[Rfam]
RNA sequence: ACCGGGUUGAGUGGCGUCAACUUGUAACCGCAGGCUUCUGGCGGGGUAGGGUUCUUUAAGGGAGAGGUCACUAUUGUGAGGGAUCUAUAUACGACAUGUGGAUGGGGUGCCCGUUCCAAACCAGGAGUGGACAUUGUGGUAGGGACGGAAGUCCUUAAAACGAGGUCCCUAAGGAGGAGUGAAACGCCUCAGGCUGGUUGACAGAGCAGGGAAAAGCUGUCGCUCUUGGUAGUGGAAGGAUCGCAACCCAGAAUGUCGAUGGUCUCUCACCAUGGAAUAUGGCGUCUUUCGAAGGGAAACUGA
Numbered sequence: 001a002c003c004g005g006g007u008u009g010a011g012u013g014g015c016g017u018c019a020a021c022u023u024g025u026a027a028c029c030g031c032a033g034g035c036u037u038c039u040g041g042c043g044g045g046g047u048a049g050g051g052u053u054c055u056u057u058a059a060g061g062g063a064g065a066g067g068u069c070a071c072u073a074u075u076g077u078g079a080g081g082g083a084u085c086u087a088u089a090u091a092c093g094a095c096a097u098g099u100g101g102a103u104g105g106g107g108u109g110c111c112c113g114u115u116c117c118a119a120a121c122c123a124g125g126a127g128u129g130g131a132c133a134u135u136g137u138g139g140u141a142g143g144g145a146c147g148g149a150a151g152u153c154c155u156u157a158a159a160a161c162g163a164g165g166u167c168c169c170u171a172a173g174g175a176g177g178a179g180u181g182a183a184a185c186g187c188c189u190c191a192g193g194c195u196g197g198u199u200g201a202c203a204g205a206g207c208a209g210g211g212a213a214a215a216g217c218u219g220u221c222g223c224u225c226u227u228g229g230u231a232g233u234g235g236a237a238g239g240a241u242c243g244c245a246a247c248c249c250a251g252a253a254u255g256u257c258g259a260u261g262g263u264c265u266c267u268c269a270c271c272a273u274g275g276a277a278u279a280u281g282g283c284g285u286c287u288u289u290c291g292a293a294g295g296g297a298a299a300c301u302g303a
Stems, first nucleotide, its partner, number of pairs: 001047003004023007028044003049301002052298006060290006067278002071274001076270008085262004093257005099251001103250004108245003111239002114237005120230009129168004134163004140157007169173001176220001178218003187211003194204003
A member of the RNA family "Metazoan signal recognition particle RNA" from Aphanomyces stellatus, 303 nucleotides long. Lineage of the source: Eukaryota > Stramenopiles > Oomycota > Saprolegniales > Aphanomyces. The family's consensus secondary structure is taken from published work.